RNA: Mammalian CPEB3 ribozyme
Organism: Crocodylus porosus
RNA sequence: CGUUACAAGUUCGAGGUCAUAGCGGAAGUGCUCAUGGCAUGGCCCUGUCGGAUUUCAAUGAAUCUGUUAAUUCUGCU
Numbered sequence: 001c002g003u004u005a006c007a008a009g010u011u012c013g014a015g016g017u018c019a020u021a022g023c024g025g026a027a028g029u030g031c032u033c034a035u036g037g038c039a040u041g042g043c044c045c046u047g048u049c050g051g052a053u054u055u056c057a058a059u060g061a062a063u064c065u066g067u068u069a070a071u072u073c074u075g076c077u
Base pairs, nucleotide, nucleotide: 013045015044016043017042018041021077022076023075024074025073026072027071028040029039030038049066050065051064052063053062054061055060